The family of this 122-nucleotide RNA sequence from Izhakiella capsodis is "Enterobacteria greA leader".
Taxonomically the source falls in Izhakiella (Bacteria, Pseudomonadota, Enterobacterales, Erwiniaceae).
Rfam classes the family as a cis-regulatory leader.

[Rfam]
RNA sequence: GUCAUACUACGGUGCAUUGAGGUGCAAAGUAAACGAUGACCCGGGGGGAACUCCUGGGUAAAAUACGUAUCAAAAUGCAAAAUGACUUUCUGGCCUGGAUACGCUCCGGGUCAGGUUUCUUU
Dot-bracket structure: (((((....((..((.............))...)))))))((....))........((((.......)))).................(((((((((((.....))))))))))).......
Pairs were carried over by alignment from the consensus structure, which is taken from published work.